A member of the RNA family "Small nucleolar RNA snoR31/Z110/Z27" from Anisodus acutangulus, 97 nucleotides long. About the family: This family contains several related snoRNAs including R31, Z27 and Z110. Rfam links the family to the GO terms RNA processing and nucleolus. The base pairs follow the family's consensus structure, which was predicted with PFOLD. The match comes from Rfam's covariance-model search (61 bits). On this family, see Chen et al., Nucleic Acids Res 2003: "The high diversity of snoRNAs in plants: identification and comparative study of 120 snoRNA genes from Oryza sativa".

RNA sequence: UCAAGUAUAUGAUGAAAUUAUAACAUCUUAGGACACCUUCUGACACAGUACGCCAAAUGCUGUGUAUGAGAAAUAUAUUUUUAUUUCUGAUACUUGA
Numbered sequence: 001u002c003a004a005g006u007a008u009a010u011g012a013u014g015a016a017a018u019u020a021u022a023a024c025a026u027c028u029u030a031g032g033a034c035a036c037c038u039u040c041u042g043a044c045a046c047a048g049u050a051c052g053c054c055a056a057a058u059g060c061u062g063u064g065u066a067u068g069a070g071a072a073a074u075a076u077a078u079u080u081u082u083a084u085u086u087c088u089g090a091u092a093c094u095u096g097a
Stems, first nucleotide, its partner, number of pairs: 001097007041047002